[Rfam]
RNA sequence: UCUCAGGCUGUGACCCCCUGGAGGGGCGUGCUUUCUGUUGUUUGUAAACAAACAAAGCUCAUCCCUCUAGAGUGUCACCGUUUGACA
Numbered sequence: 001u002c003u004c005a006g007g008c009u010g011u012g013a014c015c016c017c018c019u020g021g022a023g024g025g026g027c028g029u030g031c032u033u034u035c036u037g038u039u040g041u042u043u044g045u046a047a048a049c050a051a052a053c054a055a056a057g058c059u060c061a062u063c064c065c066u067c068u069a070g071a072g073u074g075u076c077a078c079c080g081u082u083u084g085a086c087a
Stems, first nucleotide, its partner, number of pairs: 001087001003085003007081002010078005016072001018070001020068007028060001030058005038052002
RNA: mir-515 microRNA precursor family